[Rfam]
RNA: Eukaryotic large subunit ribosomal RNA, nucleotides 647 to 925
RNA sequence: GAGUCGUCUUCGUAUGCGAGUGUUCGGGUGUAAAACCCCUACGCGUAAUGAAAGUGAACGCAGGUGAGAGCUUCGGCGCAUCAUCGACCGAUCCUGAUGUUCUCGGAUGGAUUUGAGUAAGAGCAUACGGGGCCGGACCCGAAAGAAGGUGAACUAUGCCUGUGUAGGGUGAAGCCAGAGGAAACUCUGGUGGAGGCUCGCAGCGGUUCUGACGUGCAAAUCGAUCGUCAAACAUGGGCAUGGGGGCGAAAGACUAAUCGAACCUUCUAGUAGCUGGUU
Numbered sequence: 001g002a003g004u005c006g007u008c009u010u011c012g013u014a015u016g017c018g019a020g021u022g023u024u025c026g027g028g029u030g031u032a033a034a035a036c037c038c039c040u041a042c043g044c045g046u047a048a049u050g051a052a053a054g055u056g057a058a059c060g061c062a063g064g065u066g067a068g069a070g071c072u073u074c075g076g077c078g079c080a081u082c083a084u085c086g087a088c089c090g091a092u093c094c095u096g097a098u099g100u101u102c103u104c105g106g107a108u109g110g111a112u113u114u115g116a117g118u119a120a121g122a123g124c125a126u127a128c129g130g131g132g133c134c135g136g137a138c139c140c141g142a143a144a145g146a147a148g149g150u151g152a153a154c155u156a157u158g159c160c161u162g163u164g165u166a167g168g169g170u171g172a173a174g175c176c177a178g179a180g181g182a183a184a185c186u187c188u189g190g191u192g193g194a195g196g197c198u199c200g201c202a203g204c205g206g207u208u209c210u211g212a213c214g215u216g217c218a219a220a221u222c223g224a225u226c227g228u229c230a231a232a233c234a235u236g237g238g239c240a241u242g243g244g245g246g247c248g249a250a251a252g253a254c255u256a257a258u259c260g261a262a263c264c265u266u267c268u269a270g271u272a273g274c275u276g277g278u279u
Stems, first nucleotide, its partner, number of pairs: 005135002008132010020044003026038004048055002063085005070077002087118002089115003092111003098105002138277002141274001145267006154243011165231001167199004174191007203228004208224002211222002245255002